[Rfam]
RNA: Burkholderia RNA 14
Organism: Paraburkholderia sp. BL10I2N1
RNA sequence: GUCGGCGUCGUAACCGUCCAGCCGUCGGCAGUUCCGGUCACCAGCGAACUGCCGGGCCGUACCAGCGCCUACCUCGUCGCGGAAGUCCGCGCACGGGUGGACGGCAUCGUCCUGAGGCGCGAGUUCACGGAAGGCUCCGAGGUCAAGGCCGGCCAGCGUCUCUACAAGAUCGA
Numbered sequence: 001g002u003c004g005g006c007g008u009c010g011u012a013a014c015c016g017u018c019c020a021g022c023c024g025u026c027g028g029c030a031g032u033u034c035c036g037g038u039c040a041c042c043a044g045c046g047a048a049c050u051g052c053c054g055g056g057c058c059g060u061a062c063c064a065g066c067g068c069c070u071a072c073c074u075c076g077u078c079g080c081g082g083a084a085g086u087c088c089g090c091g092c093a094c095g096g097g098u099g100g101a102c103g104g105c106a107u108c109g110u111c112c113u114g115a116g117g118c119g120c121g122a123g124u125u126c127a128c129g130g131a132a133g134g135c136u137c138c139g140a141g142g143u144c145a146a147g148g149c150c151g152g153c154c155a156g157c158g159u160c161u162c163u164a165c166a167a168g169a170u171c172g173a
Stems, first nucleotide, its partner, number of pairs: 003054005008047003011043001016038001018037002021034001023031001055150004059143002063139001065137001067135002072133001074131002079092003094121002097118001102114003106110001157172002159169003